[Rfam]
RNA sequence: UUCCCGAAUGCAGGAGAGUGCUACACCGUAUUACACGGCAAGCCACCGAAGGCGCAGACACCCUUAAAUCGCUCAGGUAAAAGGACUGCAUUUCAUCA
Numbered sequence: 001u002u003c004c005c006g007a008a009u010g011c012a013g014g015a016g017a018g019u020g021c022u023a024c025a026c027c028g029u030a031u032u033a034c035a036c037g038g039c040a041a042g043c044c045a046c047c048g049a050a051g052g053c054g055c056a057g058a059c060a061c062c063c064u065u066a067a068a069u070c071g072c073u074c075a076g077g078u079a080a081a082a083g084g085a086c087u088g089c090a091u092u093u094c095a096u097c098a
Base pairs, nucleotide, nucleotide: 006093007092008091009090010089011088012087013086020043021042022041045078046077047076048074049073052072053071054070058065